[Rfam]
RNA sequence: GUAAAUUCUCAGGGAAGGGUGAAAUUCCCUAUCGGCGGUAAGUAUACAAUUAGUAUACAAGCCCGCAAGCGUUUGCUAUUUAUUUGGCAAAGCCAGCAGAUUUGGUGAAAAUCCAAGGCCGACGGUAAAGUCCGGAUGAAAGAGAAUGGAA
Numbered sequence: 001g002u003a004a005a006u007u008c009u010c011a012g013g014g015a016a017g018g019g020u021g022a023a024a025u026u027c028c029c030u031a032u033c034g035g036c037g038g039u040a041a042g043u044a045u046a047c048a049a050u051u052a053g054u055a056u057a058c059a060a061g062c063c064c065g066c067a068a069g070c071g072u073u074u075g076c077u078a079u080u081u082a083u084u085u086g087g088c089a090a091a092g093c094c095a096g097c098a099g100a101u102u103u104g105g106u107g108a109a110a111a112u113c114c115a116a117g118g119c120c121g122a123c124g125g126u127a128a129a130g131u132c133c134g135g136a137u138g139a140a141a142g143a144g145a146a147u148g149g150a151a
Stems, first nucleotide, its partner, number of pairs: 005147006017029003031131002033121002035066004061119002069097002101117005123134003
RNA: FMN riboswitch aptamer (RFN element)